Description:
Rfam assigns this 102-nucleotide sequence from Pullulanibacillus camelliae to the family "Purine riboswitch aptamer".

Nucleotides: 102
Stems, first nucleotide, its partner, number of pairs: 018088008029049001031047005058078007
Number, partner (000 for none) and nucleotide at each position: 001000u002000u003000c004000a005000a006000u007000a008000c009000a010000a011000a012000a013000c014000a015000u016000a017000a018088u019087g020086c021085u022084c023083g024082u025081a026000u027000a028000a029049u030000g031047g032046c033045g034044g035043g036000a037000a038000u039000a040000a041000g042000g043035c044034c045033c046032g047031c048000a049029a050000g051000u052000u053000u054000c055000u056000a057000c058078c059077a060076g061075a062074c063073u064072a065000c066000c067000g068000u069000a070000a071000a072064u073063g074062g075061u076060c077059u078058g079000a080000c081025u082024a083023c084022g085021a086020g087019u088018g089000a090000g091000a092000g093000u094000u095000a096000a097000c098000a099000c100000u101000u102000g
A search with the family's covariance model found it, with a score of 90 bits.
The family's consensus secondary structure is taken from published work.
Clan: Purine riboswitches.